[Rfam]
RNA: mir-192/215 microRNA precursor family
Organism: Sphaeramia orbicularis
Nucleotides: 075
Base pairs, nucleotide, nucleotide: 001075002074003073005071006070008068010066011065013063014062015061016060018057019056020055021054022053023052024051025050026049027048029046030045031044
Number, partner (000 for none) and nucleotide at each position: 001075g002074c003073a004000a005071g006070g007000g008068g009000a010066u011065g012000a013063c014062c015061u016060a017000u018057g019056a020055a021054u022053u023052g024051a025050c026049a027048g028000c029046c030045a031044g032000u033000g034000a035000u036000c037000u038000g039000a040000a041000c042000a043000g044031c045030u046029g047000c048027c049026u050025g051024u052023c053022a054021g055020u056019u057018c058000u059000g060016u061015a062014g063013g064000c065011c066010a067000c068008u069000g070006c071005u072000c073003u074002g075001u